[Rfam]
RNA sequence: AUUAAGAAAAGGCAAACUUGCUGAAAGGCAAGGACGCAAAGCCACAGGUCUACGGAACCAAACUAUGACGGCUGGGCUACCGAU
Numbered sequence: 001a002u003u004a005a006g007a008a009a010a011g012g013c014a015a016a017c018u019u020g021c022u023g024a025a026a027g028g029c030a031a032g033g034a035c036g037c038a039a040a041g042c043c044a045c046a047g048g049u050c051u052a053c054g055g056a057a058c059c060a061a062a063c064u065a066u067g068a069c070g071g072c073u074g075g076g077c078u079a080c081c082g083a084u
Stems, first nucleotide, its partner, number of pairs: 012037002017032006040078004045074003048069003055063001
Dot-bracket structure: ...........((...((((((....))))))...))..((((.((((((....(.......)...)))..)))))))......
This 84-nucleotide RNA from Halalkalibacter hemicellulosilyticus belongs to the Rfam family "c-di-GMP-I riboswitch aptamer". The family's consensus secondary structure is taken from published work. A search with the family's covariance model found it, with a score of 76 bits.